Iron response element II: a 31-nucleotide sequence from Pitta sordida. For this family Rfam cites "A cytosolic protein binds to structural elements within the iron regulatory region of the transferrin receptor mRNA" (Koeller et al., Proc Natl Acad Sci U S A, 1989). IRE, TFRC, SLC40A1, SDHB, SLC11A2, CDC42BPA, ACO2, ALAS2_H.SAPIENS, CDC14A, EPAS1, ALAS2, qoxD, Hao1, NDUFS1, transferrin, Aconitate. The family's RNA type in Rfam is cis-regulatory element.
RNA sequence: UUGAUAUCUGUGACAGAGAUUACAAUAUUAG
Numbered sequence: 001u002u003g004a005u006a007u008c009u010g011u012g013a014c015a016g017a018g019a020u021u022a023c024a025a026u027a028u029u030a031g
Stems, first nucleotide, its partner, number of pairs: 001031007009024005014018001